[Rfam]
RNA sequence: AUACCUUUCUCGGCCUCUUGGUUAAGAUCAAGUGCAGUAUCUAUUAUUAUCAGUGUAAUAGUCUGAUAAUCUGAGCCUACGGGUUCAUUGCCCUGGUAUUAAUUUUUUAAGGGAAGGACCCAUGGUAGCUUGCUACUCAGGGUUCCCUUUGUAUCACCUUUGCUUUUUGGCACACCCACCAAUAUUUUGGCACACCCACU
Numbered sequence: 001a002u003a004c005c006u007u008u009c010u011c012g013g014c015c016u017c018u019u020g021g022u023u024a025a026g027a028u029c030a031a032g033u034g035c036a037g038u039a040u041c042u043a044u045u046a047u048u049a050u051c052a053g054u055g056u057a058a059u060a061g062u063c064u065g066a067u068a069a070u071c072u073g074a075g076c077c078u079a080c081g082g083g084u085u086c087a088u089u090g091c092c093c094u095g096g097u098a099u100u101a102a103u104u105u106u107u108u109a110a111g112g113g114a115a116g117g118a119c120c121c122a123u124g125g126u127a128g129c130u131u132g133c134u135a136c137u138c139a140g141g142g143u144u145c146c147c148u149u150u151g152u153a154u155c156a157c158c159u160u161u162g163c164u165u166u167u168u169g170g171c172a173c174a175c176c177c178a179c180c181a182a183u184a185u186u187u188u189g190g191c192a193c194a195c196c197c198a199c200u
Stems, first nucleotide, its partner, number of pairs: 008027003012023004048068006072087006115148003118143003125136004151193002154190003160182003
RNA: U2 spliceosomal RNA
Organism: Corchorus olitorius